Rfam assigns this 346-nucleotide RNA from gamma proteobacterium HIMB55 to the family "Bacterial RNase P class A". By type it is a ribozyme. The family's consensus secondary structure is taken from published work. Taxonomically the source falls in Halieaceae (Bacteria, Pseudomonadota, Gammaproteobacteria, Cellvibrionales).
[Rfam]
Nucleotides: 346
Base pairs, nucleotide, nucleotide: 001342002341003340004339005338006337007336008335009334010333011331012311013310014309015308016307017306018305020036021035022034023033024032025031026030041329042328043327045326046325047324048323049322050215051214052213053212058248059247063211064210065209066208067207068082069081070080071079072078083097084095085094086093087092098206099205103204104203105200106199120145121144122141123140124139125138126137127136128135129134153171154170155169156168157167158166172194173192174191175190176189178187179186180185219268220267221266222265229259230258231257232256233255234254239253240252241251242250275294276293277292278291279290280289281288282287
Number, partner (000 for none) and nucleotide at each position: 001342c002341g003340a004339g005338u006337c007336g008335g009334u010333u011331a012311g013310a014309c015308g016307g017306u018305c019000g020036c021035u022034g023033u024032a025031c026030g027000c028000u029000a030026u031025g032024u033023a034022c035021a036020g037000a038000g039000g040000a041329a042328a043327g044000u045326c046325c047324g048323g049322g050215c051214u052213c053212c054000a055000a056000u057000g058248g059247g060000u061000c062000a063211g064210a065209g066208c067207g068082c069081c070080a071079g072078g073000u074000a075000a076000c077000g078072c079071c080070u081069g082068g083097g084095g085094a086093g087092u088000g089000u090000g091000a092087g093086c094085u095084c096000a097083c098206g099205g100000a101000a102000a103204g104203u105200g106199c107000a108000g109000c110000a111000g112000a113000a114000a115000g116000g117000a118000a119000a120145c121144c122141g123140c124139c125138u126137c127136g128135g129134u130000g131000u132000a133000a134129g135128u136127c137126g138125a139124g140123g141122u142000a143000a144121g145120g146000g147000u148000g149000a150000a151000a152000a153171g154170g155169u156168g157167c158166g159000g160000u161000a162000a163000g164000a165000g166158c167157g168156c169155a170154c171153c172194g173192c174191g175190c176189g177000g178187c179186u180185g181000g182000u183000a184000a185180c186179a187178g188000g189176c190175g191174u192173g193000g194172c195000g196000a197000u198000g199106g200105u201000a202000a203104a204103c205099c206098c207067c208066g209065c210064u211063c212053g213052g214051a215050g216000c217000a218000a219268g220267a221266c222265c223000a224000a225000a226000u227000a228000g229259g230258g231257a232256u233255c234254c235000u236000u237000a238000u239253g240252c241251c242250g243000u244000g245000a246000c247059c248058c249000u250242c251241g252240g253239c254234g255233g256232a257231u258230c259229c260000g261000g262000g263000u264000a265222g266221g267220u268219c269000g270000c271000u272000a273000c274000a275294g276293g277292c278291g279290u280289c281288u282287g283000g284000u285000g286000a287282c288281a289280g290279a291278c292277g293276u294275c295000g296000c297000a298000g299000a300000u301000g302000a303000a304000u305018g306017a307016c308015c309014g310013u311012u312000c313000a314000c315000g316000a317000c318000a319000g320000a321000a322049c323048c324047c325046g326045g327043c328042u329041u330000a331011u332000c333010g334009a335008c336007u337006g338005a339004c340003u341002c342001g343000a344000u345000a346000u
Ribonuclease P (RNase P) is a ubiquitous endoribonuclease, found in archaea, bacteria and eukarya as well as chloroplasts and mitochondria. Its best characterised activity is the generation of mature 5'-ends of tRNAs by cleaving the 5'-leader elements of precursor-tRNAs. The literature on the family includes a 1998 paper in Annu Rev Biochem by Frank and Pace, "Ribonuclease P: unity and diversity in a tRNA processing ribozyme".